[Rfam]
The record is a 102-nucleotide RNA sequence from Oxobacter pfennigii, which matches "Purine riboswitch aptamer" in Rfam. The match comes from Rfam's covariance-model search (86 bits).

RNA sequence: AAAGAAAAUAUUGCCUGCACUCAUAUAUGUCCGAUGAUAUGGUUCGGAUGUCUCUACCAUGCAGCCGUAAACUGCGUGACUAUGGGUGAAAUCAUGCGGUUU
Numbered sequence: 001a002a003a004g005a006a007a008a009u010a011u012u013g014c015c016u017g018c019a020c021u022c023a024u025a026u027a028u029g030u031c032c033g034a035u036g037a038u039a040u041g042g043u044u045c046g047g048a049u050g051u052c053u054c055u056a057c058c059a060u061g062c063a064g065c066c067g068u069a070a071a072c073u074g075c076g077u078g079a080c081u082a083u084g085g086g087u088g089a090a091a092u093c094a095u096g097c098g099g100u101u102u
Stems, first nucleotide, its partner, number of pairs: 018088008029049006058078007
Dot-bracket structure: .................((((((((...((((((.........))))))........(((((((.......)))))))..))))))))..............

Background
Riboswitches are metabolite binding domains within certain messenger RNAs that serve as precision sensors for their corresponding targets. Allosteric rearrangement of mRNA structure is mediated by ligand binding, and this results in modulation of gene expression. Taxonomically the source falls in Oxobacter (Bacteria, Bacillota, Clostridia, Clostridiaceae).